[Rfam]
RNA sequence: AAUCAUCAAAGUUUGCUCCCGCUAACCGAGACCUAUGGGAGGGUAAAUUACGUCUCUCAUAUCCACCAGUGAAGGGAUUGGUGGAAAUAUAGUUUCGC
Numbered sequence: 001a002a003u004c005a006u007c008a009a010a011g012u013u014u015g016c017u018c019c020c021g022c023u024a025a026c027c028g029a030g031a032c033c034u035a036u037g038g039g040a041g042g043g044u045a046a047a048u049u050a051c052g053u054c055u056c057u058c059a060u061a062u063c064c065a066c067c068a069g070u071g072a073a074g075g076g077a078u079u080g081g082u083g084g085a086a087a088u089a090u091a092g093u094u095u096c097g098c
Stems, first nucleotide, its partner, number of pairs: 016041005028056005063084007
The record is a 98-nucleotide RNA, which matches "PhotoRC-II RNA" in Rfam. It is annotated as a cis-regulatory element.